[Rfam]
RNA sequence: CCGAGGUGCAUUGCUGUUGCAUUGCACGUGUGAGGUGGGUGCAGUGCCUCGGCAGUGCAGCUCGG
Numbered sequence: 001c002c003g004a005g006g007u008g009c010a011u012u013g014c015u016g017u018u019g020c021a022u023u024g025c026a027c028g029u030g031u032g033a034g035g036u037g038g039g040u041g042c043a044g045u046g047c048c049u050c051g052g053c054a055g056u057g058c059a060g061c062u063c064g065g
Base pairs, nucleotide, nucleotide: 001065002064003063004062006061007059008058009057010056011055012054013053014052015051016050019047021045022044023043024042025041026040027039
RNA: mir-33 microRNA precursor family